[Rfam]
RNA sequence: UCGUAAUACGAAUCGGUGCAAAAGGGUCCUGCCCAACGACUACUGACACGUGCUGUCGGGGCACGAACCCUUUAGCACCGGUUCAUGUUACAAA
Numbered sequence: 001u002c003g004u005a006a007u008a009c010g011a012a013u014c015g016g017u018g019c020a021a022a023a024g025g026g027u028c029c030u031g032c033c034c035a036a037c038g039a040c041u042a043c044u045g046a047c048a049c050g051u052g053c054u055g056u057c058g059g060g061g062c063a064c065g066a067a068c069c070c071u072u073u074a075g076c077a078c079c080g081g082u083u084c085a086u087g088u089u090a091c092a093a094a
Base pairs, nucleotide, nucleotide: 003091004090005089006088007087008086010084011083012082013081014080015079016078017077018076019075021073022072023071024070025069026068027067029065032060033059034058036056037055044048
RNA: MIR5387 microRNA precursor family
Organism: Sorghum bicolor